The record is a 146-nucleotide RNA from Falsochrobactrum ovis, which matches "Alphaproteobacterial sRNA ar9" in Rfam. By type it is a small RNA. The pairing is the family consensus, mapped onto this sequence. The source organism's lineage runs through Bacteria, Pseudomonadota, Hyphomicrobiales, Brucellaceae and Falsochrobactrum. The literature on the family includes a 2012 paper in RNA Biol by del Val et al., "A survey of sRNA families in alpha-proteobacteria".
[Rfam]
RNA sequence: AUAAGCCUAACAACGGAACAAACCGUUGGUUCACGCGGUCAAGUCUUGGGAGGAUGGAUCCGGGCGCGAUUUUCCGCAGCCGCCAGUAAUUGGAAUGGAUCGAACGCGUAUUUAAAUUCAGCAAGGCGCAAGCCUUGCUUUUUUUU
Numbered sequence: 001a002u003a004a005g006c007c008u009a010a011c012a013a014c015g016g017a018a019c020a021a022a023c024c025g026u027u028g029g030u031u032c033a034c035g036c037g038g039u040c041a042a043g044u045c046u047u048g049g050g051a052g053g054a055u056g057g058a059u060c061c062g063g064g065c066g067c068g069a070u071u072u073u074c075c076g077c078a079g080c081c082g083c084c085a086g087u088a089a090u091u092g093g094a095a096u097g098g099a100u101c102g103a104a105c106g107c108g109u110a111u112u113u114a115a116a117u118u119c120a121g122c123a124a125g126g127c128g129c130a131a132g133c134c135u136u137g138c139u140u141u142u143u144u145u146u
Stems, first nucleotide, its partner, number of pairs: 003146003011028006034108004043055004057101005063081003066077003083093003120139008